[Rfam]
RNA sequence: GAGUGUUACAGCUCUUUUAGAGUUUGUCUAGCAGGUUUUCCAAUCUUCACUGGAAAGCUUUA
Numbered sequence: 001g002a003g004u005g006u007u008a009c010a011g012c013u014c015u016u017u018u019a020g021a022g023u024u025u026g027u028c029u030a031g032c033a034g035g036u037u038u039u040c041c042a043a044u045c046u047u048c049a050c051u052g053g054a055a056a057g058c059u060u061u062a
Base pairs, nucleotide, nucleotide: 034059035058036057037056038055039054040053041052042051044049
A member of the RNA family "U7 small nuclear RNA" from Pan troglodytes, 62 nucleotides long. The base pairs follow the family's consensus structure, which was predicted with PFOLD. A search with the family's covariance model found it, with a score of 61 bits. NCBI's taxonomy places the organism under Eukaryota, Eutheria, Haplorrhini, Simiiformes, Pan. About the family: Animal histone pre-mRNAs are spliced by a different mechanism than nuclear pre-mRNAs and self-splicing introns. This processing involves the U7 snRNP, which contains only one RNA species: U7. The 5' end of U7 RNA is thought to base-pair to a conserved spacer element downstream of the cleavage site in histone pre-mRNA. This family contains a number of annotated U7 pseudogenes.